RNA sequence: GUCACGCGAACGGCAACGGCUAUCGGUGGGUACCCUCGCCCUCUGGCCUACCAUCACAACGGGAUUAGUUGUGAUGGCUGUUUGCGGGUUCCGUCAUAUGCGCACAGCGCAUUUCGGGCUCGACACUGCGCUACCCCGCAGGUCACCGAUACACGGGUUCGUGAUCGUUGCGCCGGUGUGGUAGACCGGACGCUAUCCGGCCAGUG
Numbered sequence: 001g002u003c004a005c006g007c008g009a010a011c012g013g014c015a016a017c018g019g020c021u022a023u024c025g026g027u028g029g030g031u032a033c034c035c036u037c038g039c040c041c042u043c044u045g046g047c048c049u050a051c052c053a054u055c056a057c058a059a060c061g062g063g064a065u066u067a068g069u070u071g072u073g074a075u076g077g078c079u080g081u082u083u084g085c086g087g088g089u090u091c092c093g094u095c096a097u098a099u100g101c102g103c104a105c106a107g108c109g110c111a112u113u114u115c116g117g118g119c120u121c122g123a124c125a126c127u128g129c130g131c132u133a134c135c136c137c138g139c140a141g142g143u144c145a146c147c148g149a150u151a152c153a154c155g156g157g158u159u160c161g162u163g164a165u166c167g168u169u170g171c172g173c174c175g176g177u178g179u180g181g182u183a184g185a186c187c188g189g190a191c192g193c194u195a196u197c198c199g200g201c202c203a204g205u206g
Stems, first nucleotide, its partner, number of pairs: 018048005025040006051077003055073006086121004091117003098112005139175001141173001144170002147167004152163004186200005